The record is a 102-nucleotide sequence from Roseivirga pacifica, which matches "Bacteroidales small SRP" in Rfam. The family's RNA type in Rfam is non-coding RNA gene. NCBI's taxonomy places the organism under Bacteria, Bacteroidota, Cytophagales, Roseivirgaceae, Roseivirga. The literature on the family includes a 2020 paper in Nat Commun by Ryan et al., "A high-resolution transcriptome map identifies small RNA regulation of metabolism in the gut microbe Bacteroides thetaiotaomicron".
RNA sequence: UGCACCCGGCAAAGGGAUGCGACCAGCUCCUGCUGAACUCCCCCAGGCUGGGAACAGAGCAAGGGUAGGCGGUUGUAGCGGUGCGACAUCCUGAUGCCUUUU
Numbered sequence: 001u002g003c004a005c006c007c008g009g010c011a012a013a014g015g016g017a018u019g020c021g022a023c024c025a026g027c028u029c030c031u032g033c034u035g036a037a038c039u040c041c042c043c044c045a046g047g048c049u050g051g052g053a054a055c056a057g058a059g060c061a062a063g064g065g066u067a068g069g070c071g072g073u074u075g076u077a078g079c080g081g082u083g084c085g086a087c088a089u090c091c092u093g094a095u096g097c098c099u100u101u102u
Stems, first nucleotide, its partner, number of pairs: 008098004015091005020085002022082002